[Rfam]
RNA sequence: UGAUAUGUUCGUAGUGCAGCGAACAGGAUAAUCAAAAGAAAUGCACAACUGGA
Numbered sequence: 001u002g003a004u005a006u007g008u009u010c011g012u013a014g015u016g017c018a019g020c021g022a023a024c025a026g027g028a029u030a031a032u033c034a035a036a037a038g039a040a041a042u043g044c045a046c047a048a049c050u051g052g053a
Base pairs, nucleotide, nucleotide: 006025007024008023009022010021011020014046015045016044017043

Annotation: This 53-nucleotide sequence belongs to the Rfam family "6A RNA". It is one of the family's seed sequences.